RNA sequence: UAAUACUGAGGAGAGGAGACAGGGAUGAGGCAGAGCAUGGGAUGGGGCUAUCAACAGAGAUGUAGAUUGUUGUUAGGACAAGAAGAGAUGAGUUGUGUGCGAGAGAGAUGGAUGUGUUGUUGCUCCCUCCCCUGCACUGCCUCUUCCCUGGCUCCCUGCAUCUCCUCAUCU
Numbered sequence: 001u002a003a004u005a006c007u008g009a010g011g012a013g014a015g016g017a018g019a020c021a022g023g024g025a026u027g028a029g030g031c032a033g034a035g036c037a038u039g040g041g042a043u044g045g046g047g048c049u050a051u052c053a054a055c056a057g058a059g060a061u062g063u064a065g066a067u068u069g070u071u072g073u074u075a076g077g078a079c080a081a082g083a084a085g086a087g088a089u090g091a092g093u094u095g096u097g098u099g100c101g102a103g104a105g106a107g108a109u110g111g112a113u114g115u116g117u118u119g120u121u122g123c124u125c126c127c128u129c130c131c132c133u134g135c136a137c138u139g140c141c142u143c144u145u146c147c148c149u150g151g152c153u154c155c156c157u158g159c160a161u162c163u164c165c166u167c168a169u170c171u
Stems, first nucleotide, its partner, number of pairs: 016154003020150006028142006035135003039131001041130001045125004